About this RNA: c-di-AMP riboswitch aptamer (ydaO/yuaA leader): a 159-nucleotide RNA from Streptomyces fumanus.
[Rfam]
RNA sequence: CGCGCGCACGCGCCGAAUCCCGCGAGGGAACCGGGGAACCACCACCUUGGGGUGAAUCGGGCGUAUACGGCAGUGGCCCACACGGCACGUAUACGCGCGUAGGAGACCUUCCCGCUCCGAACCCGUCAGCUAACCCGGUAGGCGGAGACGGAAGGAAAG
Number, nucleotide and partner (000 for none) at each position: 001c000002g000003c000004g000005c000006g000007c000008a000009c000010g000011c144012g143013c142014c141015g000016a000017a000018u029019c028020c027021c000022g000023c000024g000025a000026g000027g020028g019029a018030a139031c138032c137033g136034g135035g134036g000037a000038a000039c000040c049041a048042c000043c000044a000045c000046c000047u000048u041049g040050g124051g123052g122053u000054g000055a000056a000057u000058c099059g098060g000061g096062c095063g094064u093065a092066u091067a090068c089069g088070g000071c000072a000073g000074u000075g000076g000077c000078c000079c000080a000081c000082a000083c000084g000085g000086c000087a000088c069089g068090u067091a066092u065093a064094c063095g062096c061097g000098c059099g058100u000101a000102g118103g117104a116105g115106a000107c000108c000109u000110u000111c000112c000113c000114g000115c105116u104117c103118c102119g000120a000121a000122c052123c051124c050125g000126u000127c000128a000129g000130c000131u000132a000133a000134c035135c034136c033137g032138g031139u030140a000141g014142g013143c012144g011145g000146a000147g000148a000149c000150g000151g000152a000153a000154g000155g000156a000157a000158a000159g000

Overview:
It scores 94 bits against the family's covariance model. NCBI's taxonomy places the organism under Bacteria, Actinomycetota, Actinomycetes, Streptomycetaceae, Streptomyces.